A member of the RNA family "c-di-GMP-I riboswitch aptamer" from Salipaludibacillus neizhouensis, 90 nucleotides long.
About the family: GEMM was predicted in a large-scale screen for bacterial structured RNA regulatory elements. Genes associated with GEMM are involved in a diverse array of functions, including chemotaxis regulation, signal transduction, secretion and chitin.
The match comes from Rfam's covariance-model search (74 bits).
The base pairs follow the family's consensus structure, which is taken from published work.
NCBI's taxonomy places the organism under Bacteria, Bacillati, Bacillota, Caryophanales, Salipaludibacillus.
RNA sequence: AUCUGAAAAAGGCAAACUUCACCGAAAGGGAAGGACGCAAAGCCAUGAGCCUAAAUGCUUAUCAAAGCAGAUGGUUGUCAGGUUCCCGGG
Numbered sequence: 001a002u003c004u005g006a007a008a009a010a011g012g013c014a015a016a017c018u019u020c021a022c023c024g025a026a027a028g029g030g031a032a033g034g035a036c037g038c039a040a041a042g043c044c045a046u047g048a049g050c051c052u053a054a055a056u057g058c059u060u061a062u063c064a065a066a067g068c069a070g071a072u073g074g075u076u077g078u079c080a081g082g083u084u085c086c087c088g089g090g
Stems, first nucleotide, its partner, number of pairs: 012038002017033004022029002041084004046080003049075003056069004